[Rfam]
RNA sequence: GGGCCGGCUUUAGCUCAGCAGUUACUUCGACAAUGUUUUCUACGGUGGAAACAAUCACUCUGUGAGGUUCGAGACAGGCGGGCGCUCUCCAGCCCUUCA
Dot-bracket structure: .(((.((.....((((.((......(((((......................................)))))....)))))).....)).))).....

Annotation: This 99-nucleotide RNA from Cebus imitator belongs to the Rfam family "Vault RNA". This family of RNAs are found as part of the enigmatic vault ribonucleoprotein complex. Pairs were carried over by alignment from the consensus structure, which is taken from published work. The organism belongs to Cebus, within Eukaryota. The match comes from Rfam's covariance-model search (64 bits).